[Rfam]
RNA: mir-29 microRNA precursor family
RNA sequence: UAAAAACUGCGUUCCAUUGUUGCUGAUAUAAACUAAUUCUAUCAGCAACAAUGGAACGCAGUUUUUA
Numbered sequence: 001u002a003a004a005a006a007c008u009g010c011g012u013u014c015c016a017u018u019g020u021u022g023c024u025g026a027u028a029u030a031a032a033c034u035a036a037u038u039c040u041a042u043c044a045g046c047a048a049c050a051a052u053g054g055a056a057c058g059c060a061g062u063u064u065u066u067a
Base pairs, nucleotide, nucleotide: 001067002066003065004064005062007061008060009059010058011057012056013055014054015053017051018050019049020048021047022046025043026042